[Rfam]
RNA sequence: CGCCGCACGGGAGGCUGUGACGCGCGGCCCAUACGCAGGCCGCCGGGACCGCGCCGAGCCACUGGCGAGACCGACCCGCCCGAAG
Numbered sequence: 001c002g003c004c005g006c007a008c009g010g011g012a013g014g015c016u017g018u019g020a021c022g023c024g025c026g027g028c029c030c031a032u033a034c035g036c037a038g039g040c041c042g043c044c045g046g047g048a049c050c051g052c053g054c055c056g057a058g059c060c061a062c063u064g065g066c067g068a069g070a071c072c073g074a075c076c077c078g079c080c081c082g083a084a085g
Base pairs, nucleotide, nucleotide: 001085004082005081008078009077010076011075013060014059015058022054023053024052025051026050027049029047038072039071041067042066043065044064
RNA: c-di-GMP-II-GAG riboswitch aptamer